[Rfam]
RNA sequence: AUCGGACAUUGAAAUGGUUACGGAGGUAGGUCUCAUGUUUGUCGAUAGUGUAGUGCUCGCUGGGGUGGUCACGGUCGGCCUGAUGAUCGCCUUCUUCGGUGGUGUCGGUUAUUUCAUCUGGCGGGAUUCGCACAAGAAGAAGGGUUGAUCCCGACAGAUACAAAGAGCACGCAAGGCAUUUGGGCGACCUCUGGUCGCCUUUUUUUUG
Numbered sequence: 001a002u003c004g005g006a007c008a009u010u011g012a013a014a015u016g017g018u019u020a021c022g023g024a025g026g027u028a029g030g031u032c033u034c035a036u037g038u039u040u041g042u043c044g045a046u047a048g049u050g051u052a053g054u055g056c057u058c059g060c061u062g063g064g065g066u067g068g069u070c071a072c073g074g075u076c077g078g079c080c081u082g083a084u085g086a087u088c089g090c091c092u093u094c095u096u097c098g099g100u101g102g103u104g105u106c107g108g109u110u111a112u113u114u115c116a117u118c119u120g121g122c123g124g125g126a127u128u129c130g131c132a133c134a135a136g137a138a139g140a141a142g143g144g145u146u147g148a149u150c151c152c153g154a155c156a157g158a159u160a161c162a163a164a165g166a167g168c169a170c171g172c173a174a175g176g177c178a179u180u181u182g183g184g185c186g187a188c189c190u191c192u193g194g195u196c197g198c199c200u201u202u203u204u205u206u207u208g
Base pairs, nucleotide, nucleotide: 007101008100009099010098050060051059077088078087080085167177168176170175183199184198185197186196187195188194
RNA: PhrS
Organism: Pseudomonas sp. BAY1663